Shown here is a 65-nucleotide sequence from Gloeothece citriformis, a member of the family "Nitrogen stress-induced RNA 4". Rfam classes the family as a small RNA. On this family, see Klahn et al., Proc Natl Acad Sci U S A 2015: "The sRNA NsiR4 is involved in nitrogen assimilation control in cyanobacteria by targeting glutamine synthetase inactivating factor IF7". About the family: Former name SyR12, is a cyanobacterial non-coding RNA which plays role in the regulation of Glutamine synthetase (GS), a key enzyme in biological nitrogen assimilation. NsiR4 interacts with the 5'UTR of the mRNA of the GS inactivating factor IF7 (gifA mRNA) and reduces its expression. Lineage of the source: Bacteria > Cyanobacteriota > Cyanophyceae > Aphanothecaceae > Gloeothece citriformis.
[Rfam]
RNA sequence: AAGACAUAAAGUCAAUAUCACCCUCCGAUUGCUUAUCCAGGCCGCCCAUAGUCUAGGGGCGGUUU
Dot-bracket structure: ..(((.....))).........................(((((((((.........)))))))))